mir-3660 microRNA precursor family: an 82-nucleotide RNA sequence from Jaculus jaculus. Gene Ontology terms of the family: RISC complex and miRNA-mediated post-transcriptional gene silencing. The source organism's lineage runs through Eukaryota, Vertebrata, Myomorpha, Dipodoidea and Jaculus. The family has 4 seed sequences and 125 matches in Rfam 15.1.

RNA sequence: AGUGGACACAUUCAAAAUGCUUUUCUGUCGGUGUAAUAGCUCACAUGGGCACUGACAGGAGAGCAUUUUAAUUUUGUCAAGU
Dot-bracket structure: (.(.((((.(.(.(((((((((((((((((.(((.((.......))..))).))))))))))))))))).).).)))).).)